[Rfam]
RNA sequence: UCCGUUGCGAGACGGAAUCUGAAGGAAGUCAGCGGCAAACCUCCGGCCCGAUGAACAAAAGCCACAUAAAAGGCUAGCGGCAGUUGGAUGAGCUUGCCAUUCAAAGCAAAGUCCUUGCUACCGAAGGCUGCCGAGAGUAAAUGUGGCGGGUAGAUAGAGGAAAAGACAGCGUU
Numbered sequence: 001u002c003c004g005u006u007g008c009g010a011g012a013c014g015g016a017a018u019c020u021g022a023a024g025g026a027a028g029u030c031a032g033c034g035g036c037a038a039a040c041c042u043c044c045g046g047c048c049c050g051a052u053g054a055a056c057a058a059a060a061g062c063c064a065c066a067u068a069a070a071a072g073g074c075u076a077g078c079g080g081c082a083g084u085u086g087g088a089u090g091a092g093c094u095u096g097c098c099a100u101u102c103a104a105a106g107c108a109a110a111g112u113c114c115u116u117g118c119u120a121c122c123g124a125a126g127g128c129u130g131c132c133g134a135g136a137g138u139a140a141a142u143g144u145g146g147c148g149g150g151u152a153g154a155u156a157g158a159g160g161a162a163a164a165g166a167c168a169g170c171g172u173u
Stems, first nucleotide, its partner, number of pairs: 001016006028173001030171001036165001040160004045155001046151005062146006073138003078133006086114004092107004
This 173-nucleotide sequence from Thermincola carboxydiphila belongs to the Rfam family "Group II catalytic intron D1-D4-3". The organism belongs to Thermincola carboxydiphila, within Bacteria.